[Rfam]
RNA: RNase MRP
Organism: Cladocopium goreaui
Nucleotides: 248
Base pairs, nucleotide, nucleotide: 002248003247004246005245006244008241009240010239011238012237015199016198017197018196019195020194023064024062025061026060027059028058029057038051039050040049041048042047069231070230072229073228074227075226085097086096087095088094099110100109101108102107120166121165123163124162125161126160127159128158129157130154132152133151140147141146201216202215203214204213205212206211
Number, partner (000 for none) and nucleotide at each position: 001000g002248g003247g004246g005245g006244c007000a008241g009240g010239a011238a012237a013000a014000g015199c016198a017197u018196g019195g020194c021000c022000g023064c024062g025061c026060a027059g028058c029057g030000a031000a032000c033000a034000c035000a036000c037000a038051g039050g040049g041048a042047g043000c044000u045000u046000g047042c048041u049040c050039c051038c052000a053000c054000a055000u056000a057029u058028g059027c060026u061025g062024c063000g064023g065000g066000g067000a068000a069231a070230g071000u072229c073228c074227c075226c076000g077000u078000g079000c080000c081000u082000u083000g084000g085097g086096g087095c088094a089000g090000a091000a092000a093000g094088u095087g096086c097085c098000a099110c100109u101108g102107g103000g104000a105000g106000a107102c108101c109100g110099g111000a112000a113000g114000a115000c116000c117000u118000u119000g120166a121165c122000u123163u124162u125161g126160g127159g128158g129157c130154u131000u132152a133151c134000a135000g136000c137000g138000a139000a140147g141146c142000a143000a144000a145000c146141g147140c148000a149000g150000a151133g152132u153000u154130g155000u156000g157129g158128u159127c160126c161125u162124g163123g164000u165121g166120u167000u168000u169000u170000g171000g172000u173000c174000c175000u176000u177000u178000g179000c180000a181000g182000c183000a184000g185000c186000a187000a188000a189000g190000u191000c192000a193000u194020g195019c196018c197017a198016u199015g200000a201216g202215c203214g204213u205212u206211u207000u208000c209000a210000a211206g212205a213204a214203c215202g216201c217000c218000a219000a220000c221000u222000g223000a224000a225000c226075g227074g228073g229072g230070c231069u232000c233000a234000c235000u236000c237012u238011u239010u240009c241008c242000a243000u244006g245005c246004c247003c248002u